[Rfam]
RNA sequence: CCUAUUGAGUGUUAUAUCAAAUGGUAGUAGGAGUGGAGUGAAUCUCCACUCCGAGGGCAGACACGAUGAUGUAGGAA
Numbered sequence: 001c002c003u004a005u006u007g008a009g010u011g012u013u014a015u016a017u018c019a020a021a022u023g024g025u026a027g028u029a030g031g032a033g034u035g036g037a038g039u040g041a042a043u044c045u046c047c048a049c050u051c052c053g054a055g056g057g058c059a060g061a062c063a064c065g066a067u068g069a070u071g072u073a074g075g076a077a
Stems, first nucleotide, its partner, number of pairs: 001075005009064005022059002030052009
RNA: RAGATH-18 RNA